This 127-nucleotide RNA from Cavia porcellus belongs to the Rfam family "Small nucleolar RNA SNORA1".
[Rfam]
RNA sequence: GGCCUCAUCUAGAAUGGGCGCUGUCAACUGGUGUCCAAAAUUGGUCAGUGCAGCUAAAUGGAGACACAGGUGAUGCCUCUGUCAUAGUAAAUGUAUCACUGUGGUGACAGUGAGACCUGCGACACUU
Numbered sequence: 001g002g003c004c005u006c007a008u009c010u011a012g013a014a015u016g017g018g019c020g021c022u023g024u025c026a027a028c029u030g031g032u033g034u035c036c037a038a039a040a041u042u043g044g045u046c047a048g049u050g051c052a053g054c055u056a057a058a059u060g061g062a063g064a065c066a067c068a069g070g071u072g073a074u075g076c077c078u079c080u081g082u083c084a085u086a087g088u089a090a091a092u093g094u095a096u097c098a099c100u101g102u103g104g105u106g107a108c109a110g111u112g113a114g115a116c117c118u119g120c121g122a123c124a125c126u127u
Stems, first nucleotide, its partner, number of pairs: 002054002006050003015037007067119004080106006

Annotation:
Rfam links the family to the GO terms nucleolus and RNA processing. Rfam classes the family as an H/ACA-box small nucleolar RNA. ACA1 is a member of the H/ACA class of snoRNA that guide the sites of modification of uridines to pseudouridines.